Purine riboswitch aptamer: a 102-nucleotide RNA from Paenactinomyces guangxiensis. Pairs were carried over by alignment from the consensus structure, which is taken from published work. The match comes from Rfam's covariance-model search (83 bits).

RNA sequence: CUUGAACAGAAUCAUACAUCUCAUAUAAUCGUGAGGAUAAGGCUCGCGAGUUUCUACCGGAUCACCGUAAAUGAUCCGACUAUGAGUGAGCGAGAGCAAGGG
Numbered sequence: 001c002u003u004g005a006a007c008a009g010a011a012u013c014a015u016a017c018a019u020c021u022c023a024u025a026u027a028a029u030c031g032u033g034a035g036g037a038u039a040a041g042g043c044u045c046g047c048g049a050g051u052u053u054c055u056a057c058c059g060g061a062u063c064a065c066c067g068u069a070a071a072u073g074a075u076c077c078g079a080c081u082a083u084g085a086g087u088g089a090g091c092g093a094g095a096g097c098a099a100g101g102g
Base pairs, nucleotide, nucleotide: 020086021085022084023083024082025081029049030048031047032046033045034044035043058078059077060076061075062074063073064072